[Rfam]
RNA sequence: UGACAUAAGUGUCAUAAGUCUAUCUCCCACUUGUGCUUGCACAAAAGUAGGAGAUAGACUUCAUGACACGCCACACAUGGAGCAUGGAAGGACGCUUUAGCGGCCUGGGAGUGCGGAAUGUGGGAGAAUCGUGAGAGCGCUCUGCGCGGAACGAUUCUAUGUCG
Numbered sequence: 001u002g003a004c005a006u007a008a009g010u011g012u013c014a015u016a017a018g019u020c021u022a023u024c025u026c027c028c029a030c031u032u033g034u035g036c037u038u039g040c041a042c043a044a045a046a047g048u049a050g051g052a053g054a055u056a057g058a059c060u061u062c063a064u065g066a067c068a069c070g071c072c073a074c075a076c077a078u079g080g081a082g083c084a085u086g087g088a089a090g091g092a093c094g095c096u097u098u099a100g101c102g103g104c105c106u107g108g109g110a111g112u113g114c115g116g117a118a119u120g121u122g123g124g125a126g127a128a129u130c131g132u133g134a135g136a137g138c139g140c141u142c143u144g145c146g147c148g149g150a151a152c153g154a155u156u157c158u159a160u161g162u163c164g
Stems, first nucleotide, its partner, number of pairs: 001164007010068004016061012029048003032043004072124001074122005082114004089106003093102003126157007137147004
RNA: Clostridiales-1 RNA
Organism: Oribacterium sp. C9